[Rfam]
RNA sequence: UUUGCCUCAAGGCAAACCAGUGGAAACGCUGGGACGCAAAGCUAAAGGGAUGUCGGCGCAAGCCAUGUCAGCCAGCUGCCAAA
Numbered sequence: 001u002u003u004g005c006c007u008c009a010a011g012g013c014a015a016a017c018c019a020g021u022g023g024a025a026a027c028g029c030u031g032g033g034a035c036g037c038a039a040a041g042c043u044a045a046a047g048g049g050a051u052g053u054c055g056g057c058g059c060a061a062g063c064c065a066u067g068u069c070a071g072c073c074a075g076c077u078g079c080c081a082a083a
Base pairs, nucleotide, nucleotide: 012037013036017032018031019030020029021028022027040077041076042075043074047073048072049069050068051067056063057062
Dot-bracket structure: ...........((...((((((....))))))...))..((((...(((((....((....))...)))..))))))......

Shown here is an 83-nucleotide sequence from Bdellovibrio bacteriovorus, a member of the family "c-di-GMP-I riboswitch aptamer". GEMM was predicted in a large-scale screen for bacterial structured RNA regulatory elements. The source organism's lineage runs through Bacteria, Pseudomonadati, Bdellovibrionota, Bdellovibrionia and Bdellovibrio.